[Rfam]
RNA sequence: UUAUAAUAAAUCAUCAAAUUACGUAUAACAGCUUUGAUAAGGAAAGCGAGUCUCUACCCUAAACCGUAAAUUUAGGACUACGUGCAAACCAAAAAAACCA
Numbered sequence: 001u002u003a004u005a006a007u008a009a010a011u012c013a014u015c016a017a018a019u020u021a022c023g024u025a026u027a028a029c030a031g032c033u034u035u036g037a038u039a040a041g042g043a044a045a046g047c048g049a050g051u052c053u054c055u056a057c058c059c060u061a062a063a064c065c066g067u068a069a070a071u072u073u074a075g076g077a078c079u080a081c082g083u084g085c086a087a088a089c090c091a092a093a094a095a096a097a098c099c100a
Stems, first nucleotide, its partner, number of pairs: 020084006031047005058076006
A member of the RNA family "Purine riboswitch aptamer" from Candidatus Izimoplasma sp. HR1, 100 nucleotides long. The source organism's lineage runs through Bacteria, Bacillati, Mycoplasmatota, Candidatus Izemoplasmatales and Candidatus Izemoplasma. On this family, see Mandal et al., Cell 2003: "Riboswitches Control Fundamental Biochemical Pathways in Bacillus subtilis and Other Bacteria". It scores 66 bits against the family's covariance model. Rfam describes the family as follows. Riboswitches are metabolite binding domains within certain messenger RNAs that serve as precision sensors for their corresponding targets.